Shown here is a 252-nucleotide sequence from Trichophyton interdigitale, a member of the family "Small nucleolar RNA snR191". Lineage of the source: Eukaryota > Eurotiomycetes > Onygenales > Trichophyton > Trichophyton interdigitale. Clan: SNORA74 clan. Rfam classes the family as an H/ACA-box small nucleolar RNA. Rfam links the family to the GO terms RNA processing and nucleolus. The family's consensus secondary structure was predicted with WAR. A search with the family's covariance model found it, with a score of 56 bits. A reference for the family is Badis et al. (2003), "A snoRNA that guides the two most conserved pseudouridine modifications within rRNA confers a growth advantage in yeast", RNA.
RNA sequence: UGCCAUCGCGUUUGUCAAGGCUGCUUCCAGUGCAUAAGUUAUUGCCGUUUUUUACAAUGGAAGACGGUCUGUUACCGCUAUGGCAGAUUAAUCCCCCCCGUAACUUUGGCUUCUUUCUGAAGUCGAGGUUGACUUGCUUUCGUUUUGAAGGCAUCGUCGCAAAGGGCAUGGUGUGUCUUGUUUUGAGUUGAGUCCCGCUUCCACUUUGUUGUGGACAUGAUAGCUGUUCUCUUAGUAACAUUUCAUAUAUCU
Number, nucleotide and partner (000 for none) at each position: 001u000002g000003c083004c082005a081006u080007c000008g000009c000010g000011u000012u000013u000014g000015u000016c000017a000018a070019g069020g068021c067022u066023g000024c063025u062026u061027c060028c059029a000030g000031u000032g045033c044034a043035u000036a000037a000038g000039u000040u000041a000042u000043u034044g033045c032046c000047g000048u000049u000050u000051u000052u000053u000054a000055c000056a000057a000058u000059g028060g027061a026062a025063g024064a000065c000066g022067g021068u020069c019070u018071g000072u000073u000074a000075c000076c000077g000078c000079u000080a006081u005082g004083g003084c000085a000086g000087a000088u000089u000090a000091a000092u000093c000094c171095c170096c000097c166098c165099c164100g000101u000102a130103a129104c000105u127106u126107u125108g124109g123110c122111u121112u120113c119114u000115u000116u000117c000118u000119g113120a112121a111122g110123u109124c108125g107126a106127g105128g000129u103130u102131g000132a000133c000134u000135u000136g152137c151138u150139u149140u148141c147142g146143u000144u000145u000146u142147g141148a140149a139150g138151g137152c136153a000154u000155c000156g000157u000158c000159g000160c000161a000162a000163a000164g099165g098166g097167c000168a000169u000170g095171g094172u000173g246174u245175g244176u000177c000178u000179u240180g239181u238182u000183u000184u000185g000186a000187g000188u000189u000190g231191a230192g229193u000194c000195c000196c000197g224198c223199u222200u215201c214202c213203a209204c000205u000206u000207u000208g000209u203210u000211g000212u000213g202214g201215a200216c000217a000218u000219g000220a000221u000222a199223g198224c197225u000226g000227u000228u000229c192230u191231c190232u000233u000234a000235g000236u000237a000238a181239c180240a179241u000242u000243u000244c175245a174246u173247a000248u000249a000250u000251c000252u000